Background
The family of this 93-nucleotide sequence from Helicobacter mustelae is "Selenocysteine transfer RNA". Gene Ontology term of the family: triplet codon-amino acid adaptor activity.

RNA sequence: GGGGGGCAAGUGUCCCUGGUGGGCACCUUGGGCUUCAAACCCACAGAAUGGCUAGGUGUUUAGUCAUUGAGGAGUUCGAUUCUUCUGCCCUCC
Numbered sequence: 001g002g003g004g005g006g007c008a009a010g011u012g013u014c015c016c017u018g019g020u021g022g023g024c025a026c027c028u029u030g031g032g033c034u035u036c037a038a039a040c041c042c043a044c045a046g047a048a049u050g051g052c053u054a055g056g057u058g059u060u061u062a063g064u065c066a067u068u069g070a071g072g073a074g075u076u077c078g079a080u081u082c083u084u085c086u087g088c089c090c091u092c093c
Base pairs, nucleotide, nucleotide: 001093002092003091004090005089006088007087008086010026011025012024014023015022016021027046028045029043030042031041032040048067049066050065051064052063071085072084073083074082